RNA sequence: UAGGUAGGGGUAGGCGAUCCCCUGGGAAUGGCAAUUACUCACGCAAUAGCUUCAGGCAUGGGCGGAAUGCGAGCGGCCGGAGAUCUGGUUGCCCGAAUGC
Numbered sequence: 001u002a003g004g005u006a007g008g009g010g011u012a013g014g015c016g017a018u019c020c021c022c023u024g025g026g027a028a029u030g031g032c033a034a035u036u037a038c039u040c041a042c043g044c045a046a047u048a049g050c051u052u053c054a055g056g057c058a059u060g061g062g063c064g065g066a067a068u069g070c071g072a073g074c075g076g077c078c079g080g081a082g083a084u085c086u087g088g089u090u091g092c093c094c095g096a097a098u099g100c
Stems, first nucleotide, its partner, number of pairs: 007038001010035002013032001015030002018026002073092005079086002
Shown here is a 100-nucleotide RNA sequence from Desulforhopalus singaporensis, a member of the family "Pyrrolysine insertion sequence mtbB".
By type it is a cis-regulatory element.
Rfam links the family to the GO term pyrrolysine incorporation.
Pairs were carried over by alignment from the consensus structure, which was predicted with WAR.
The literature on the family includes a 2013 paper in BMC Bioinformatics by Theil Have et al., "Effects of using coding potential, sequence conservation and mRNA structure conservation for predicting pyrroly-sine containing genes".